[Rfam]
RNA sequence: UGUGAGAGUGAUGAGUUGCACCGUCAGUCGGGGCGCUGGUUGCAGUGGCACAAGCGCCCUGUCCCGGAUCUCCCUGGGGACAACCCAAUGUGCACAGGGGCCAUCUGACUCACC
Numbered sequence: 001u002g003u004g005a006g007a008g009u010g011a012u013g014a015g016u017u018g019c020a021c022c023g024u025c026a027g028u029c030g031g032g033g034c035g036c037u038g039g040u041u042g043c044a045g046u047g048g049c050a051c052a053a054g055c056g057c058c059c060u061g062u063c064c065c066g067g068a069u070c071u072c073c074c075u076g077g078g079g080a081c082a083a084c085c086c087a088a089u090g091u092g093c094a095c096a097g098g099g100g101c102c103a104u105c106u107g108a109c110u111c112a113c114c
Stems, first nucleotide, its partner, number of pairs: 004113001006111003024067002027064001029061003033057003041050003

This 114-nucleotide sequence from Esox lucius belongs to the Rfam family "Small nucleolar RNA SNORD67".
snoRNA HBII-166 belongs to the C/D family of snoRNAs.
A search with the family's covariance model found it, with a score of 92 bits.
The family has 15 seed sequences and 781 matches in Rfam 15.1.
The source organism's lineage runs through Eukaryota, Deuterostomia, Actinopterygii, Esocidae and Esox.
For this family Rfam cites "RNomics: an experimental approach that identifies 201 candidates for novel, small, non-messenger RNAs in mouse" (Huttenhofer et al., EMBO J, 2001).
It is annotated as a C/D-box small nucleolar RNA.